[Rfam]
RNA sequence: GGAAAAGUGUCGAUCCCGGGUGGGACGUCCAGACUUCAAAUCUGGGAAGGGCUGUAGAACAGUCCUUGGUGGGUUCGACUCCCAUACUUUUCC
Numbered sequence: 001g002g003a004a005a006a007g008u009g010u011c012g013a014u015c016c017c018g019g020g021u022g023g024g025a026c027g028u029c030c031a032g033a034c035u036u037c038a039a040a041u042c043u044g045g046g047a048a049g050g051g052c053u054g055u056a057g058a059a060c061a062g063u064c065c066u067u068g069g070u071g072g073g074u075u076c077g078a079c080u081c082c083c084a085u086a087c088u089u090u091u092c093c
Stems, first nucleotide, its partner, number of pairs: 001093009011027002014025004028046006048066005070084004